[Rfam]
RNA sequence: UCUCCUUGAGGGGCCUUAGCCUCUCCCCAGGCCUUUUUCAUGACCAGGAGGCUGAGGCCCUUCACAGGCGGC
Numbered sequence: 001u002c003u004c005c006u007u008g009a010g011g012g013g014c015c016u017u018a019g020c021c022u023c024u025c026c027c028c029a030g031g032c033c034u035u036u037u038u039c040a041u042g043a044c045c046a047g048g049a050g051g052c053u054g055a056g057g058c059c060c061u062u063c064a065c066a067g068g069c070g071g072c
Stems, first nucleotide, its partner, number of pairs: 001071002004068003008063010019052004023047002028042002031039001
This 72-nucleotide RNA sequence from Hipposideros armiger belongs to the Rfam family "mir-665 microRNA precursor family". The base pairs follow the family's consensus structure, which was predicted with RNAalifold. The source organism's lineage runs through Eukaryota, Bilateria, Boreoeutheria, Yinpterochiroptera and Hipposideros.